[Rfam]
RNA sequence: CAAUACCAUUAGCCUAAAUUUUACGGCAUAAUUUGCUUUAAAAUGCGGAGGAACCAAGUUAUGGGGUGAAUCACCAUCUGGUGUAGGUUAUACCUUUUCCGAACCCGUCAGCUAACUUCGCAGGCAAAAGGAGGUAUUGUA
Numbered sequence: 001c002a003a004u005a006c007c008a009u010u011a012g013c014c015u016a017a018a019u020u021u022u023a024c025g026g027c028a029u030a031a032u033u034u035g036c037u038u039u040a041a042a043a044u045g046c047g048g049a050g051g052a053a054c055c056a057a058g059u060u061a062u063g064g065g066g067u068g069a070a071u072c073a074c075c076a077u078c079u080g081g082u083g084u085a086g087g088u089u090a091u092a093c094c095u096u097u098u099c100c101g102a103a104c105c106c107g108u109c110a111g112c113u114a115a116c117u118u119c120g121c122a123g124g125c126a127a128a129a130g131g132a133g134g135u136a137u138u139g140u141a
Stems, first nucleotide, its partner, number of pairs: 012125003018044006045121006055063002064106003072083004086100002